[Rfam]
RNA sequence: GAGCGAGGACGACCUCCCCAUGAAGACACCCUUCGGGACGACCCGG
Numbered sequence: 001g002a003g004c005g006a007g008g009a010c011g012a013c014c015u016c017c018c019c020a021u022g023a024a025g026a027c028a029c030c031c032u033u034c035g036g037g038a039c040g041a042c043c044c045g046g
Stems, first nucleotide, its partner, number of pairs: 001019001003017001005016004033046005
Guanidine-II riboswitch aptamer (mini-ykkC): a 46-nucleotide RNA sequence from Bauldia litoralis.
Lineage of the source: Bacteria > Pseudomonadati > Pseudomonadota > Kaistiaceae > Bauldia.
Rfam 15.1 lists 1,589 matches to the family in 1,229 species.